[Rfam]
RNA sequence: AAGUAUUACAGUUCUUUUAGAAUUUGUCUAGCAGGUUCUCUGUUUUUACCAGAAAAUCCCC
Numbered sequence: 001a002a003g004u005a006u007u008a009c010a011g012u013u014c015u016u017u018u019a020g021a022a023u024u025u026g027u028c029u030a031g032c033a034g035g036u037u038c039u040c041u042g043u044u045u046u047u048a049c050c051a052g053a054a055a056a057u058c059c060c061c
Stems, first nucleotide, its partner, number of pairs: 034058004039053003042049002